[Rfam]
A member of the RNA family "livK RNA" from Pseudomonas savastanoi, 84 nucleotides long. Rfam's curators put it in the seed alignment. By type it is a cis-regulatory element. The base pairs follow the family's consensus structure, which is taken from published work.
Nucleotides: 084
Stems, first nucleotide, its partner, number of pairs: 001047004007042004012038006018030003053084001055081004062075004
Number, partner (000 for none) and nucleotide at each position: 001047a002046g003045g004044g005000u006000c007042c008041c009040u010039u011000g012038c013037c014036a015035u016034a017033c018030g019029c020028c021000c022000a023000c024000u025000c026000u027000c028020g029019g030018c031000a032000g033017g034016u035015g036014u037013g038012g039010a040009a041008g042007g043000u044004c045003c046002c047001u048000c049000g050000c051000a052000c053084g054000a055081c056080u057079g058078g059000u060000c061000c062075u063074g064073a065072c066000a067000c068000u069000g070000c071000c072065g073064u074063c075062a076000c077000g078058c079057c080056a081055g082000c083000c084053c